[Rfam]
The family of this 154-nucleotide RNA from Rhodobacter ferrooxidans is "Ruegeria cis2 sRNA".
RNA sequence: AUUGCUGAAAUGCGGGUUGUAGUUCAGGAACAUGUAGCCGCGGCCCUGGUCGAUGGUGUGAAACAACGGAUUCCAGUCGAACAUUUUCAGGAUGUAGCUGGGCAUCAUGUUGGCCACGAACAUCUUGCCCGAGGCUAUCAUGUUGGCGCGCAUG
Numbered sequence: 001a002u003u004g005c006u007g008a009a010a011u012g013c014g015g016g017u018u019g020u021a022g023u024u025c026a027g028g029a030a031c032a033u034g035u036a037g038c039c040g041c042g043g044c045c046c047u048g049g050u051c052g053a054u055g056g057u058g059u060g061a062a063a064c065a066a067c068g069g070a071u072u073c074c075a076g077u078c079g080a081a082c083a084u085u086u087u088c089a090g091g092a093u094g095u096a097g098c099u100g101g102g103c104a105u106c107a108u109g110u111u112g113g114c115c116a117c118g119a120a121c122a123u124c125u126u127g128c129c130c131g132a133g134g135c136u137a138u139c140a141u142g143u144u145g146g147c148g149c150g151c152a153u154g
Stems, first nucleotide, its partner, number of pairs: 003034002006032002011027001014024002037057004041052004064154002067150002071081003087146004092141003098134002101130002103127002107123002110119003
The family's consensus secondary structure was predicted with RNAfold.
On this family, see Rivers et al., Front Microbiol 2016: "Experimental Identification of Small Non-Coding RNAs in the Model Marine Bacterium Ruegeria pomeroyi DSS-3".